[Rfam]
RNA sequence: UAUGCAAGUGAUGAGAAAAUAGACAGGGACAUCAGUACUCUAUACGAGAAUGUUGACUCAGUCUUUGGGAAUCUCUCUGAUGCUUG
Numbered sequence: 001u002a003u004g005c006a007a008g009u010g011a012u013g014a015g016a017a018a019a020u021a022g023a024c025a026g027g028g029a030c031a032u033c034a035g036u037a038c039u040c041u042a043u044a045c046g047a048g049a050a051u052g053u054u055g056a057c058u059c060a061g062u063c064u065u066u067g068g069g070a071a072u073c074u075c076u077c078u079g080a081u082g083c084u085u086g
Stems, first nucleotide, its partner, number of pairs: 002085001004083003
Shown here is an 86-nucleotide RNA sequence from Tripterygium wilfordii, a member of the family "Small nucleolar RNA R44/J54/Z268 family".
The match comes from Rfam's covariance-model search (82 bits).